RNA sequence: GCAUAUUUCAGGUUUGUGCGUGAAUCUAAUAUAGACAUUUUUCUUUCCACAAAAGAUCGUAAAAUUCUCUCUAGGAUCUUGUUAGAUUCACGCACAAACUCGUAAUCUGCCU
Numbered sequence: 001g002c003a004u005a006u007u008u009c010a011g012g013u014u015u016g017u018g019c020g021u022g023a024a025u026c027u028a029a030u031a032u033a034g035a036c037a038u039u040u041u042u043c044u045u046u047c048c049a050c051a052a053a054a055g056a057u058c059g060u061a062a063a064a065u066u067c068u069c070u071c072u073a074g075g076a077u078c079u080u081g082u083u084a085g086a087u088u089c090a091c092g093c094a095c096a097a098a099c100u101c102g103u104a105a106u107c108u109g110c111c112u
Stems, first nucleotide, its partner, number of pairs: 001110003005106003011100016028083003034078001
Annotation:
Shown here is a 112-nucleotide RNA from Manihot esculenta, a member of the family "MIR403 microRNA precursor family". The base pairs follow the family's consensus structure, which was predicted with WAR. A search with the family's covariance model found it, with a score of 80 bits. Rfam links the family to the GO terms RISC complex and miRNA-mediated post-transcriptional gene silencing.